[Rfam]
RNA sequence: CACGACCUUCGGGGCAGGGUGAGGGGGCUGCACGGUCCCCAAUUCCCGACCGGCGGUGGGCACCGGGGUGACCCGGUGCGAGCCCGCGACCCGCGCACGGUCUGAGGCGCGGUGGACCCGGUGUGGCGCGCAGGUAAAGCCGGGGCCGACGGUACAGUCCGGAUGGGAGAAGGUCGGU
Numbered sequence: 001c002a003c004g005a006c007c008u009u010c011g012g013g014g015c016a017g018g019g020u021g022a023g024g025g026g027g028c029u030g031c032a033c034g035g036u037c038c039c040c041a042a043u044u045c046c047c048g049a050c051c052g053g054c055g056g057u058g059g060g061c062a063c064c065g066g067g068g069u070g071a072c073c074c075g076g077u078g079c080g081a082g083c084c085c086g087c088g089a090c091c092c093g094c095g096c097a098c099g100g101u102c103u104g105a106g107g108c109g110c111g112g113u114g115g116a117c118c119c120g121g122u123g124u125g126g127c128g129c130g131c132a133g134g135u136a137a138a139g140c141c142g143g144g145g146c147c148g149a150c151g152g153u154a155c156a157g158u159c160c161g162g163a164u165g166g167g168a169g170a171a172g173g174u175c176g177g178u
Base pairs, nucleotide, nucleotide: 003176004175005174006173007172008171009170010169017047018046019045049158050157051148052147053087054086055085056084082146083145091112092111117144118143119142120141121140150161151160152159
RNA: FMN riboswitch aptamer (RFN element)